A member of the RNA family "ToxI antitoxin" from Bacillus thuringiensis, 34 nucleotides long. It is one of the family's seed sequences. The literature on the family includes a 2013 paper in Proc Natl Acad Sci U S A by Short et al., "Selectivity and self-assembly in the control of a bacterial toxin by an antitoxic noncoding RNA pseudoknot". Its family is annotated with mRNA binding and negative regulation of translation in the Gene Ontology.
[Rfam]
RNA sequence: AAAUUGGUGUAUCCUUACCCUAGUAGGAACAAAA
Numbered sequence: 001a002a003a004u005u006g007g008u009g010u011a012u013c014c015u016u017a018c019c020c021u022a023g024u025a026g027g028a029a030c031a032a033a034a
Stems, first nucleotide, its partner, number of pairs: 006019003012028004